[Rfam]
RNA: mir-26 microRNA precursor family
Organism: Monodelphis domestica
RNA sequence: CCGUUUCAAGUAAUCCAGGAUAGGCUGUUUUCUCUUCAGCCUGUUCUCCAUUACUUGGUUCGGGGGCC
Number, nucleotide and partner (000 for none) at each position: 001c063002c062003g061004u000005u000006u000007c057008a056009a055010g054011u053012a052013a051014u050015c000016c000017a047018g046019g045020a044021u043022a042023g041024g040025c039026u038027g000028u000029u000030u000031u000032c000033u000034c000035u000036u000037c000038a026039g025040c024041c023042u022043g021044u020045u019046c018047u017048c000049c000050a014051u013052u012053a011054c010055u009056u008057g007058g000059u000060u000061c003062g002063g001064g000065g000066g000067c000068c000